[Rfam]
RNA sequence: GUCAUCAAGUGAUGAAAUAUGGAUAAAUCUUAGGACACCUUCCUACAUAGCUCAUUUGCUAUGGAUGAGAAUAACUUUUCCAUUCUGAUGAUGAU
Numbered sequence: 001g002u003c004a005u006c007a008a009g010u011g012a013u014g015a016a017a018u019a020u021g022g023a024u025a026a027a028u029c030u031u032a033g034g035a036c037a038c039c040u041u042c043c044u045a046c047a048u049a050g051c052u053c054a055u056u057u058g059c060u061a062u063g064g065a066u067g068a069g070a071a072u073a074a075c076u077u078u079u080c081c082a083u084u085c086u087g088a089u090g091a092u093g094a095u
Stems, first nucleotide, its partner, number of pairs: 001095007
Dot-bracket structure: (((((((.................................................................................)))))))